Rfam assigns this 46-nucleotide RNA from Cyclonatronum proteinivorum to the family "Acido-Lenti-1 RNA". Lineage of the source: Bacteria > Pseudomonadati > Balneolota > Balneolales > Cyclonatronum.
[Rfam]
RNA sequence: CACAGGGUUGGAACCCCGUGCUGUGGUAUGCCGCGCUUUCAGCGCU
Numbered sequence: 001c002a003c004a005g006g007g008u009u010g011g012a013a014c015c016c017c018g019u020g021c022u023g024u025g026g027u028a029u030g031c032c033g034c035g036c037u038u039u040c041a042g043c044g045c046u
Base pairs, nucleotide, nucleotide: 001020002019003018005016006015007014008013033045034044035043036042037041